[Rfam]
RNA: Glycine riboswitch aptamer
RNA sequence: GCUGUACCUGUGGGAGAGCGCGGCCAUCCGGUGGCCGCCGCCGAAGGCGCAACAAUCGCCCGUAAUCGCUCAGGCCAAGGGACCGCAGGUACAAC
Numbered sequence: 001g002c003u004g005u006a007c008c009u010g011u012g013g014g015a016g017a018g019c020g021c022g023g024c025c026a027u028c029c030g031g032u033g034g035c036c037g038c039c040g041c042c043g044a045a046g047g048c049g050c051a052a053c054a055a056u057c058g059c060c061c062g063u064a065a066u067c068g069c070u071c072a073g074g075c076c077a078a079g080g081g082a083c084c085g086c087a088g089g090u091a092c093a094a095c
Stems, first nucleotide, its partner, number of pairs: 006090008020038006040075003043071002047069003053062001
Dot-bracket structure: .....((((((((......((((((.......)))))).(((((..(((...(........)....))))).))).......)))))))).....